Overview:
This 131-nucleotide RNA sequence from Mohoua ochrocephala belongs to the Rfam family "Small nucleolar RNA SNORA24". Lineage of the source: Eukaryota > Gnathostomata > Teleostomi > Neoaves > Mohoua. The match comes from Rfam's covariance-model search (81 bits). The family's RNA type in Rfam is H/ACA-box small nucleolar RNA. Rfam describes the family as follows. ACA24 is a member of the H/ACA class of snoRNA that guide the sites of modification of uridines to pseudouridines. The family has 5 seed sequences and 852 matches in Rfam 15.1.

RNA sequence: AUCCAUGACUCCAUGGGAGCUGCCGUCUGUGGCUGACUCCCUUCCUAGGCAUGGAAGAGCAGGGCCUUGCUAAUUGGCAAAACUUUUACCCUGUUGUGGGUAUGAGUCGUUGACUGUGGCAAGUAACAAAC
Numbered sequence: 001a002u003c004c005a006u007g008a009c010u011c012c013a014u015g016g017g018a019g020c021u022g023c024c025g026u027c028u029g030u031g032g033c034u035g036a037c038u039c040c041c042u043u044c045c046u047a048g049g050c051a052u053g054g055a056a057g058a059g060c061a062g063g064g065c066c067u068u069g070c071u072a073a074u075u076g077g078c079a080a081a082a083c084u085u086u087u088a089c090c091c092u093g094u095u096g097u098g099g100g101u102a103u104g105a106g107u108c109g110u111u112g113a114c115u116g117u118g119g120c121a122a123g124u125a126a127c128a129a130a131c
Stems, first nucleotide, its partner, number of pairs: 002055006015041004020035001022033003068128002071125001074122003080115001083106003088101004